[Rfam]
RNA sequence: UAUGGCAGAGGACGGAAUGGGCGGCCGUCGCCCCUCACAAGAGGUUAGGAGAUGUGGGAGAUGUCACCCCACCUGUCUAA
Numbered sequence: 001u002a003u004g005g006c007a008g009a010g011g012a013c014g015g016a017a018u019g020g021g022c023g024g025c026c027g028u029c030g031c032c033c034c035u036c037a038c039a040a041g042a043g044g045u046u047a048g049g050a051g052a053u054g055u056g057g058g059a060g061a062u063g064u065c066a067c068c069c070c071a072c073c074u075g076u077c078u079a080a
Stems, first nucleotide, its partner, number of pairs: 003079003006075003011029005020065004031049001033044004054072005
The family of this 80-nucleotide sequence is "skipping-rope RNA".
The family's RNA type in Rfam is small RNA.
Rfam's curators put it in the seed alignment.
Pairs were carried over by alignment from the consensus structure, which is taken from published work.